RNA sequence: CGACCAACAUCGCAAGGUGCUGGGAUGGGAUGGCAGAAGUCAGCAGAGGUCGCAGCAGUCGCCUGGCACCGAAGUGACGAAGGGC
Numbered sequence: 001c002g003a004c005c006a007a008c009a010u011c012g013c014a015a016g017g018u019g020c021u022g023g024g025a026u027g028g029g030a031u032g033g034c035a036g037a038a039g040u041c042a043g044c045a046g047a048g049g050u051c052g053c054a055g056c057a058g059u060c061g062c063c064u065g066g067c068a069c070c071g072a073a074g075u076g077a078c079g080a081a082g083g084g085c
Stems, first nucleotide, its partner, number of pairs: 001027002004023003008019004040047002049085003058078005
A member of the RNA family "Group II catalytic intron D1-D4-1" from a Burkholderiales bacterium, 85 nucleotides long. The pairing is the family consensus, mapped onto this sequence. The family has 237 seed sequences and 2,508 matches in Rfam 15.1. NCBI's taxonomy places the organism under Bacteria, Pseudomonadati, Pseudomonadota, Betaproteobacteria, Burkholderiales.